This 79-nucleotide sequence from Tribolium castaneum belongs to the Rfam family "mir-981 microRNA precursor family".
The sequence is in the family's curated seed alignment.
On this family, see Legeai et al., BMC Genomics 2010: "Bioinformatic prediction, deep sequencing of microRNAs and expression analysis during phenotypic plasticity in the pea aphid, Acyrthosiphon pisum".
The family has 17 seed sequences and 180 matches in Rfam 15.1.
Gene Ontology terms of the family: miRNA-mediated post-transcriptional gene silencing and RISC complex.
Taxonomically the source falls in Tribolium (Eukaryota, Eumetazoa, Insecta, Coleoptera).
[Rfam]
RNA sequence: UCUCAUAAGUUACGGGUUUCGGGGCAUCGGAACCGAUUUUAAGCUGGUUCGUUGUCGACGAAACCUGCAGACUAUGGGA
Number, nucleotide and partner (000 for none) at each position: 001u079002c078003u077004c076005a075006u074007a000008a000009g000010u000011u000012a000013c067014g066015g065016g064017u063018u062019u061020c060021g059022g000023g000024g000025c000026a000027u000028c000029g000030g050031a049032a048033c047034c046035g000036a000037u000038u000039u000040u000041a000042a000043g000044c000045u000046g034047g033048u032049u031050c030051g000052u000053u000054g000055u000056c000057g000058a000059c021060g020061a019062a018063a017064c016065c015066u014067g013068c000069a000070g000071a000072c000073u000074a006075u005076g004077g003078g002079a001